Overview:
The family of this 75-nucleotide RNA sequence from Haemonchus placei is "mir-5928 microRNA precursor family". Rfam 15.1 lists 1,672 matches to the family in 12 species. The family's consensus secondary structure was predicted with RNAalifold. A search with the family's covariance model found it, with a score of 62 bits. Lineage of the source: Eukaryota > Protostomia > Chromadorea > Rhabditomorpha > Haemonchus.
RNA sequence: GGCCCAAUUUUGCAGUACAGCAGAAUAGCAGGAUCAGCUGACCUUGCUAAUCUACCCUACUUCAGAUUUGGGCCA
Numbered sequence: 001g002g003c004c005c006a007a008u009u010u011u012g013c014a015g016u017a018c019a020g021c022a023g024a025a026u027a028g029c030a031g032g033a034u035c036a037g038c039u040g041a042c043c044u045u046g047c048u049a050a051u052c053u054a055c056c057c058u059a060c061u062u063c064a065g066a067u068u069u070g071g072g073c074c075a
Base pairs, nucleotide, nucleotide: 001074002073003072004071005070006069007068009066011064012063014061015060016059017058020055022053023052026049027048028047029046030045032043034041035040